[Rfam]
RNA sequence: CAUGGGGCUCACGCCCCAUGCUUUAUGCUGCCGUCGCAUCCGCGACU
Numbered sequence: 001c002a003u004g005g006g007g008c009u010c011a012c013g014c015c016c017c018a019u020g021c022u023u024u025a026u027g028c029u030g031c032c033g034u035c036g037c038a039u040c041c042g043c044g045a046c047u
Stems, first nucleotide, its partner, number of pairs: 001020008033046005
A member of the RNA family "Acido-Lenti-1 RNA" from Stieleria varia, 47 nucleotides long.
Lineage of the source: Bacteria > Pseudomonadati > Planctomycetia > Pirellulaceae > Stieleria.